[Rfam]
Nucleotides: 054
Base pairs, nucleotide, nucleotide: 013043014041015040016039020036021035022034023033024032025031
Number, partner (000 for none) and nucleotide at each position: 001000u002000u003000u004000a005000c006000a007000u008000u009000u010000g011000c012000u013043u014041g015040u016039a017000a018000g019000u020036c021035g022034c023033u024032u025031u026000g027000a028000a029000u030000a031025a032024a033023a034022g035021c036020g037000u038000c039016u040015g041014u042000u043013a044000a045000a046000u047000g048000a049000c050000u051000a052000a053000a054000u